[Rfam]
RNA sequence: GGUCACGAGUGCCAGCGCUAAACCCCGGUUUGCUGGCCGGCAACCCUCGUUCUGCGGUGGGGUGCCCCGGGUGAUGACCCGGCCUCGCCCGAUGGUCGCGCGAGGCAAGCGCGGACC
Numbered sequence: 001g002g003u004c005a006c007g008a009g010u011g012c013c014a015g016c017g018c019u020a021a022a023c024c025c026c027g028g029u030u031u032g033c034u035g036g037c038c039g040g041c042a043a044c045c046c047u048c049g050u051u052c053u054g055c056g057g058u059g060g061g062g063u064g065c066c067c068c069g070g071g072u073g074a075u076g077a078c079c080c081g082g083c084c085u086c087g088c089c090c091g092a093u094g095g096u097c098g099c100g101c102g103a104g105g106c107a108a109g110c111g112c113g114g115a116c117c
Base pairs, nucleotide, nucleotide: 001079002078003077004076009038011037012036013035014034015033016032021030022029039066040065041064044062045061046060048057082106083105084104085103086102087101088100090098091097